Shown here is a 130-nucleotide sequence from Oryctes borbonicus, a member of the family "U11 spliceosomal RNA".
On this family, see Montzka and Steitz, Proc Natl Acad Sci U S A 1988: "Additional low-abundance human small nuclear ribonucleoproteins: U11, U12, etc".
Pairs were carried over by alignment from the consensus structure, which is taken from published work.
RNA sequence: AAAAAGGGUGCUUGCUACUACAUAGCACAUUUAUGUUUAUACAUACGUGGGGUAUGGCAAUCAAGACAUACCCAGCACGUAAUUUUUGUUAACGGGAAGCUGUUUCUAGCCAUUGAGCAGAGGCGCCUCC
Numbered sequence: 001a002a003a004a005a006g007g008g009u010g011c012u013u014g015c016u017a018c019u020a021c022a023u024a025g026c027a028c029a030u031u032u033a034u035g036u037u038u039a040u041a042c043a044u045a046c047g048u049g050g051g052g053u054a055u056g057g058c059a060a061u062c063a064a065g066a067c068a069u070a071c072c073c074a075g076c077a078c079g080u081a082a083u084u085u086u087u088g089u090u091a092a093c094g095g096g097a098a099g100c101u102g103u104u105u106c107u108a109g110c111c112a113u114u115g116a117g118c119a120g121a122g123g124c125g126c127c128u129c130c
Stems, first nucleotide, its partner, number of pairs: 008078005013027005028049003032045005050073007097128001099126002102124005109118002111115001
Dot-bracket structure: .......((((((((((.....)))))(((.(((((....))))).)))(((((((..........))))))))))))..................(.((.(((((..(((...).)).))))))).)..